[Rfam]
RNA sequence: GGUGGCCAGGGCAGGCGUGACAGUCGAUCAACGAAUACUGUGCACGUUUGCGUCCAGCCACC
Number, nucleotide and partner (000 for none) at each position: 001g062002g061003u060004g059005g058006c057007c000008a000009g000010g000011g000012c000013a049014g048015g047016c046017g045018u044019g043020a041021c040022a039023g038024u037025c033026g032027a000028u000029c000030a000031a000032c026033g025034a000035a000036u000037a024038c023039u022040g021041u020042g000043c019044a018045c017046g016047u015048u014049u013050g000051c000052g000053u000054c000055c000056a000057g006058c005059c004060a003061c002062c001
RNA: gabT RNA
Organism: Pseudomonas entomophila